Background
This 113-nucleotide RNA sequence belongs to the Rfam family "J750 non-coding RNA (containing SLSL761 and SL783)". Rfam classes the family as a cis-regulatory element. It is one of the family's seed sequences. The base pairs follow the family's consensus structure, which was predicted with RNAfold.

[Rfam]
RNA sequence: AUUCCGCUCGUCGGCGCCCCCCUAGGGGGCGCUGCCAGGGCCCUGGCGCAUGGCGUCCGUGUCCUGGAGGACGGCGUGAAUUAUGCAACAGGGAAUCUUCCUGGUUGCUCCUU
Numbered sequence: 001a002u003u004c005c006g007c008u009c010g011u012c013g014g015c016g017c018c019c020c021c022c023u024a025g026g027g028g029g030c031g032c033u034g035c036c037a038g039g040g041c042c043c044u045g046g047c048g049c050a051u052g053g054c055g056u057c058c059g060u061g062u063c064c065u066g067g068a069g070g071a072c073g074g075c076g077u078g079a080a081u082u083a084u085g086c087a088a089c090a091g092g093g094a095a096u097c098u099u100c101c102u103g104g105u106u107g108c109u110c111c112u113u
Stems, first nucleotide, its partner, number of pairs: 001077002004074002008071002012034007019026002035067007043059001045057005085108005091102003